RNA sequence: CCUAAACUAGCAACUUGUUAUUUUCUAAUUGGUUCUUAUAAAAUUCUAGGACAUUAAGAACCAAUUGGAAAAUGACAAGUGGCUAGUUUUGG
Numbered sequence: 001c002c003u004a005a006a007c008u009a010g011c012a013a014c015u016u017g018u019u020a021u022u023u024u025c026u027a028a029u030u031g032g033u034u035c036u037u038a039u040a041a042a043a044u045u046c047u048a049g050g051a052c053a054u055u056a057a058g059a060a061c062c063a064a065u066u067g068g069a070a071a072a073u074g075a076c077a078a079g080u081g082g083c084u085a086g087u088u089u090u091g092g
Stems, first nucleotide, its partner, number of pairs: 002091001004089008013080026
Description:
A member of the RNA family "MIR6288 microRNA precursor family" from Prunus armeniaca, 92 nucleotides long. A search with the family's covariance model found it, with a score of 77 bits. Rfam links the family to the GO terms RISC complex and miRNA-mediated post-transcriptional gene silencing. Taxonomically the source falls in Prunus (Eukaryota, Streptophyta, Spermatophyta, Rosaceae).